Small nucleolar RNA SNORA13: a 134-nucleotide RNA sequence from Platysternon megacephalum.
Rfam 15.1 lists 1,034 matches to the family in 605 species.
It scores 82 bits against the family's covariance model.
ACA13 is a member of the H/ACA class of snoRNA that guide the sites of modification of uridines to pseudouridines.
Lineage of the source: Eukaryota > Metazoa > Tetrapoda > Amniota > Platysternon.
Its family is annotated with RNA processing and nucleolus in the Gene Ontology.
Rfam classes the family as an H/ACA-box small nucleolar RNA.
Clan: SNORA13 clan.

RNA sequence: UGCCUUUGUGUUGCCCAUUCAUUUUUGUUAUUAAUGUUUGUGGUGUCAAGAAAGGCAUAAAAAAAGUCCUUCCGCAGCAUUAUUUGAUGUUGGGAAUUAAUCUCUCCCACGAUUCUGCUGUAAAAGGGAGAGUU
Dot-bracket structure: .((((((.((.((((((..((((.........))))..)).)))).))..))))))...........((((..(((((.......(.(....((........))......).)...)))))..)))).......